[Rfam]
About this RNA:
MIR2619 microRNA precursor family: a 188-nucleotide RNA sequence from Medicago truncatula. Gene Ontology terms of the family: miRNA-mediated post-transcriptional gene silencing and RISC complex. A search with the family's covariance model found it, with a score of 155 bits. The organism belongs to Medicago, within Eukaryota. Pairs were carried over by alignment from the consensus structure, which was predicted with RNAalifold.
RNA sequence: AAGCAGCCCCCUAUGUAUUGGAUCUCCCCCAAGACCACUUUUGACUUAGUCUUCGCUGACAUAGCACCCACAAUGGUCGACACGUGGCACCUCACUUAAGGGAUGUGGGUGCCACGUCAGCGAAGACUAAGUCAAAAGUGGCCUUGGGAGCCAAAACUGCCAAAGAUCCAAUAUAUAGGGGGCUGUUU
Number, nucleotide and partner (000 for none) at each position: 001a188002a187003g000004c185005a184006g183007c182008c181009c000010c000011c000012u177013a176014u175015g174016u173017a172018u171019u170020g169021g168022a167023u166024c165025u164026c150027c000028c148029c147030c146031a145032a144033g000034a000035c000036c000037a000038c000039u000040u000041u000042u000043g000044a000045c000046u000047u000048a000049g000050u000051c000052u000053u000054c000055g000056c000057u000058g000059a117060c116061a000062u114063a000064g112065c111066a110067c109068c108069c107070a000071c000072a000073a000074u000075g000076g000077u000078c000079g000080a000081c000082a000083c000084g000085u000086g000087g000088c000089a000090c000091c000092u000093c000094a000095c000096u000097u000098a000099a000100g000101g000102g000103a000104u000105g000106u000107g069108g068109g067110u066111g065112c064113c000114a062115c000116g060117u059118c000119a000120g000121c000122g000123a000124a000125g000126a000127c000128u000129a000130a000131g000132u000133c000134a000135a000136a000137a000138g000139u000140g000141g000142c000143c000144u032145u031146g030147g029148g028149a000150g026151c000152c000153a000154a000155a000156a000157c000158u000159g000160c000161c000162a000163a000164a025165g024166a023167u022168c021169c020170a019171a018172u017173a016174u015175a014176u013177a012178g000179g000180g000181g008182g007183c006184u005185g004186u000187u002188u001